A member of the RNA family "mir-9195 microRNA precursor family" from Myotis lucifugus, 87 nucleotides long. It scores 96 bits against the family's covariance model. Gene Ontology terms of the family: miRNA-mediated post-transcriptional gene silencing and RISC complex. Rfam 15.1 lists 438 matches to the family in 7 species.
RNA sequence: AGAGGCCCUCCGCAGCUGGGGUGGAAUGCUUGCCUCGUCACCAUGGCGACGAAGCAAGCAUUCCGCCAGGCCACUCACGCUGCCCAC
Numbered sequence: 001a002g003a004g005g006c007c008c009u010c011c012g013c014a015g016c017u018g019g020g021g022u023g024g025a026a027u028g029c030u031u032g033c034c035u036c037g038u039c040a041c042c043a044u045g046g047c048g049a050c051g052a053a054g055c056a057a058g059c060a061u062u063c064c065g066c067c068a069g070g071c072c073a074c075u076c077a078c079g080c081u082g083c084c085c086a087c
Stems, first nucleotide, its partner, number of pairs: 004084003012074001015071003020067014037050003041046001